drz-agam-1 ribozyme: an 81-nucleotide RNA from Hermetia illucens. Rfam 15.1 lists 10,507 matches to the family in 53 species. The organism belongs to Hermetia, within Eukaryota. For this family Rfam cites "Widespread occurrence of self-cleaving ribozymes" (Webb et al., Science, 2009).
[Rfam]
RNA sequence: UACUACCAAACCCUCUACCUCUACCUCCACGUGGUGAUCGCUGGAAGUUCUUUCUUAAUGAAGAACUGCAGAGGGAGGAGA
Numbered sequence: 001u002a003c004u005a006c007c008a009a010a011c012c013c014u015c016u017a018c019c020u021c022u023a024c025c026u027c028c029a030c031g032u033g034g035u036g037a038u039c040g041c042u043g044g045a046a047g048u049u050c051u052u053u054c055u056u057a058a059u060g061a062a063g064a065a066c067u068g069c070a071g072a073g074g075g076a077g078g079a080g081a
Stems, first nucleotide, its partner, number of pairs: 014081003018077001020075003023035003046067007054060001